[Rfam]
RNA: RNase MRP
RNA sequence: AGAUUCGCUUCCAGCUUGUUAUCGGAGCAACGAACGAGUCCUACUGACUCUCAUAGCUCUGGGUAAAGUCCCCGAACCCUCUGACGGAGAGCAGUCGUACUAUAAAUGGUGCUGUUCUAUUCCCUUCCCUAUCUGCAGCUGUGAAGGUUCAACCUGAGUUGUGAGGAAUUCAGGAAUAGGAAGAUGUUCAAUUAUCCCCAAGUAAUACAGGCAGAACUGAUGUGUUCUUACAGAAUGGGGCUUAUUGGAAGUGAAUC
Numbered sequence: 001a002g003a004u005u006c007g008c009u010u011c012c013a014g015c016u017u018g019u020u021a022u023c024g025g026a027g028c029a030a031c032g033a034a035c036g037a038g039u040c041c042u043a044c045u046g047a048c049u050c051u052c053a054u055a056g057c058u059c060u061g062g063g064u065a066a067a068g069u070c071c072c073c074g075a076a077c078c079c080u081c082u083g084a085c086g087g088a089g090a091g092c093a094g095u096c097g098u099a100c101u102a103u104a105a106a107u108g109g110u111g112c113u114g115u116u117c118u119a120u121u122c123c124c125u126u127c128c129c130u131a132u133c134u135g136c137a138g139c140u141g142u143g144a145a146g147g148u149u150c151a152a153c154c155u156g157a158g159u160u161g162u163g164a165g166g167a168a169u170u171c172a173g174g175a176a177u178a179g180g181a182a183g184a185u186g187u188u189c190a191a192u193u194a195u196c197c198c199c200a201a202g203u204a205a206u207a208c209a210g211g212c213a214g215a216a217c218u219g220a221u222g223u224g225u226u227c228u229u230a231c232a233g234a235a236u237g238g239g240g241c242u243u244a245u246u247g248g249a250a251g252u253g254a255a256u257c
Base pairs, nucleotide, nucleotide: 002257003256004255005254006253007252008251009250010249011248014212015211016210017209018208019207022062023061024060025059026058027057028056036050037049038048039047040046066243067242068241070240071239072238073237083096084095085094086092097112098111099110100109101108102107115182116181118178119177120176124174125173126172136161137160138159139158146154147153148152214227215226216225217224